[Rfam]
Record summary
The family of this 45-nucleotide RNA from Eschrichtius robustus is "Histone 3' UTR stem-loop". It scores 41 bits against the family's covariance model. The source organism's lineage runs through Eukaryota, Euteleostomi, Amniota, Eschrichtiidae and Eschrichtius.

RNA sequence: CCAAAGGCUCUUUUAAGAGCCACCCACAUGUCCAUAAAGAGUUGU
Numbered sequence: 001c002c003a004a005a006g007g008c009u010c011u012u013u014u015a016a017g018a019g020c021c022a023c024c025c026a027c028a029u030g031u032c033c034a035u036a037a038a039g040a041g042u043u044g045u
Stems, first nucleotide, its partner, number of pairs: 006021006